[Rfam]
RNA sequence: AUACUUACCUGGCAGGGGAUAUACCAUGAUCACGAAGGUGGUUCUCCCAGGGCGAGGCUCACCCAUUGCACCCGGGUGUGUUGACCCCUGCGAUUCCCCAAAUGCGGAAAGUCGACUGCAUAAUUUAUGGUAGUGGGGGACUGCGUUCGCGCUAUCCCUGA
Numbered sequence: 001a002u003a004c005u006u007a008c009c010u011g012g013c014a015g016g017g018g019a020u021a022u023a024c025c026a027u028g029a030u031c032a033c034g035a036a037g038g039u040g041g042u043u044c045u046c047c048c049a050g051g052g053c054g055a056g057g058c059u060c061a062c063c064c065a066u067u068g069c070a071c072c073c074g075g076g077u078g079u080g081u082u083g084a085c086c087c088c089u090g091c092g093a094u095u096c097c098c099c100a101a102a103u104g105c106g107g108a109a110a111g112u113c114g115a116c117u118g119c120a121u122a123a124u125u126u127a128u129g130g131u132a133g134u135g136g137g138g139g140a141c142u143g144c145g146u147u148c149g150c151g152c153u154a155u156c157c158c159u160g161a
Stems, first nucleotide, its partner, number of pairs: 012119004016048004021043001023042005049089004054085001056082003060078005091114003094110002097107002134160005140155001143152003